[Rfam]
RNA sequence: UUUUCAUUGACUUUUAUCAGAAUAACCUUUAAGUUUUGAUAAAAAUGAGUGAUUAAUACUUCACUAACGUAGCGUUUCGCCGUGCCCACACCGAAGCGAUACGUUUUUUC
Numbered sequence: 001u002u003u004u005c006a007u008u009g010a011c012u013u014u015u016a017u018c019a020g021a022a023u024a025a026c027c028u029u030u031a032a033g034u035u036u037u038g039a040u041a042a043a044a045a046u047g048a049g050u051g052a053u054u055a056a057u058a059c060u061u062c063a064c065u066a067a068c069g070u071a072g073c074g075u076u077u078c079g080c081c082g083u084g085c086c087c088a089c090a091c092c093g094a095a096g097c098g099a100u101a102c103g104u105u106u107u108u109u110c
Base pairs, nucleotide, nucleotide: 004052005051006050007049008048010046012044013043014042015041016040017039018038019037020036021035022034023033066105067104068103069102070101071100073098074097075096076095077094078093079092082091083090084089

Shown here is a 110-nucleotide RNA from Loigolactobacillus backii, a member of the family "23S methyl RNA motif". It scores 66 bits against the family's covariance model. Gene Ontology term of the family: regulation of gene expression.